[Rfam]
RNA: Rhodo-rpoB RNA
RNA sequence: GGGACGGAGGUGCGCCUGUGGGAAGGCGCACCGGAUGGUUCCCCCUCAAGAGACCCUUCGCAGGCGAUGGCCCCGGUGCCCGACGGGACCCAUC
Numbered sequence: 001g002g003g004a005c006g007g008a009g010g011u012g013c014g015c016c017u018g019u020g021g022g023a024a025g026g027c028g029c030a031c032c033g034g035a036u037g038g039u040u041c042c043c044c045c046u047c048a049a050g051a052g053a054c055c056c057u058u059c060g061c062a063g064g065c066g067a068u069g070g071c072c073c074c075g076g077u078g079c080c081c082g083a084c085g086g087g088a089c090c091c092a093u094c
Stems, first nucleotide, its partner, number of pairs: 001042005010031008066094005072087004